[Rfam]
RNA sequence: CUUCCUCAGUCUUACUCCGGGGGCUUUUGUUUUCUGUGGAGUGCCCCGGCAUUGCCUGAGGAUAGAUUGAAAGUAUGUUCACUUCCCUCCCCAGCGAGAUUUUCGGUAUCCUCUGGGGCCUACAAUUUGAGCAAACAUU
Numbered sequence: 001c002u003u004c005c006u007c008a009g010u011c012u013u014a015c016u017c018c019g020g021g022g023g024c025u026u027u028u029g030u031u032u033u034c035u036g037u038g039g040a041g042u043g044c045c046c047c048g049g050c051a052u053u054g055c056c057u058g059a060g061g062a063u064a065g066a067u068u069g070a071a072a073g074u075a076u077g078u079u080c081a082c083u084u085c086c087c088u089c090c091c092c093a094g095c096g097a098g099a100u101u102u103u104c105g106g107u108a109u110c111c112u113c114u115g116g117g118g119c120c121u122a123c124a125a126u127u128u129g130a131g132c133a134a135a136c137a138u139u
Stems, first nucleotide, its partner, number of pairs: 003062007011054001017049006023042005076133003080129002089118006096112001098110002

Shown here is a 139-nucleotide RNA sequence from Centropus unirufus, a member of the family "Small nucleolar RNA SNORA49".
The match comes from Rfam's covariance-model search (114 bits).
The family's RNA type in Rfam is H/ACA-box small nucleolar RNA.
The snoRNA ACA49 has no identified RNA target. NB genomic sequence 1-nt different from published.
The family's consensus secondary structure was predicted with RNAalifold.
Its family is annotated with nucleolus and RNA processing in the Gene Ontology.